[Rfam]
RNA: tRNA
RNA sequence: GCUUCCGUAGUUCAAUGGAUAGAAUGUCAGAUUCCGGUUCUGAUGAUGGGGGUUCGAAUCCCUUCGGGAGCA
Numbered sequence: 001g002c003u004u005c006c007g008u009a010g011u012u013c014a015a016u017g018g019a020u021a022g023a024a025u026g027u028c029a030g031a032u033u034c035c036g037g038u039u040c041u042g043a044u045g046a047u048g049g050g051g052g053u054u055c056g057a058a059u060c061c062c063u064u065c066g067g068g069a070g071c072a
Base pairs, nucleotide, nucleotide: 001071002070003069004068005067006066007065010025011024012023013022027043028042029041030040031039048064049063050062051061052060
Dot-bracket structure: (((((((..((((........)))).(((((.......)))))....(((((.......)))))))))))).